[Rfam]
RNA sequence: CUUUACGGAUAAUUGCGCACUUGCUAGACAAGUGUGAGGAAAGUCCAUGCUUGCACAGGCUGCGAUGCCUGUAGUGUUCGUGCGUAGUGAAAUCAUAAGCUACGGCCCUGAAUAGGUGACGGCAGAUAAACAGACUAAGGUUCGCUAUGUCUAAGUAGUCUUGAAAAGUGCCACAGUGACGAAGCGCCUAGAGAAAUCUUGGCGGUGGAACGGGUAAACCCCUCGAGCAAGCAACUCAAACAUAAUGGUAGAGGCACUUCCAAAGCAGAAAUGAAUGAUGCGGAAGAUAGGUAACACUAUAGACAGAUGAUUAUCUCGAAGAAACGGGCCUAGCGUUUCUUUAGACAGAACAUGGCUUAUAGUG
Numbered sequence: 001c002u003u004u005a006c007g008g009a010u011a012a013u014u015g016c017g018c019a020c021u022u023g024c025u026a027g028a029c030a031a032g033u034g035u036g037a038g039g040a041a042a043g044u045c046c047a048u049g050c051u052u053g054c055a056c057a058g059g060c061u062g063c064g065a066u067g068c069c070u071g072u073a074g075u076g077u078u079c080g081u082g083c084g085u086a087g088u089g090a091a092a093u094c095a096u097a098a099g100c101u102a103c104g105g106c107c108c109u110g111a112a113u114a115g116g117u118g119a120c121g122g123c124a125g126a127u128a129a130a131c132a133g134a135c136u137a138a139g140g141u142u143c144g145c146u147a148u149g150u151c152u153a154a155g156u157a158g159u160c161u162u163g164a165a166a167a168g169u170g171c172c173a174c175a176g177u178g179a180c181g182a183a184g185c186g187c188c189u190a191g192a193g194a195a196a197u198c199u200u201g202g203c204g205g206u207g208g209a210a211c212g213g214g215u216a217a218a219c220c221c222c223u224c225g226a227g228c229a230a231g232c233a234a235c236u237c238a239a240a241c242a243u244a245a246u247g248g249u250a251g252a253g254g255c256a257c258u259u260c261c262a263a264a265g266c267a268g269a270a271a272u273g274a275a276u277g278a279u280g281c282g283g284a285a286g287a288u289a290g291g292u293a294a295c296a297c298u299a300u301a302g303a304c305a306g307a308u309g310a311u312u313a314u315c316u317c318g319a320a321g322a323a324a325c326g327g328g329c330c331u332a333g334c335g336u337u338u339c340u341u342u343a344g345a346c347a348g349a350a351c352a353u354g355g356c357u358u359a360u361a362g363u364g
Stems, first nucleotide, its partner, number of pairs: 004364003007360001008315007016036006041358003045355005050231005055072006078226003082222001083104006105120001106118001108116002121221002124161004132152004139146002168219002170215003185204004190199003235253003257286005287300004319341008

Description
The family of this 364-nucleotide RNA from Dolosigranulum pigrum is "Bacterial RNase P class B". It is annotated as a ribozyme. It scores 289 bits against the family's covariance model. NCBI's taxonomy places the organism under Bacteria, Bacillati, Bacillota, Dolosigranulum, Dolosigranulum pigrum. For this family Rfam cites "The Ribonuclease P Database" (Brown, Nucleic Acids Res, 1999).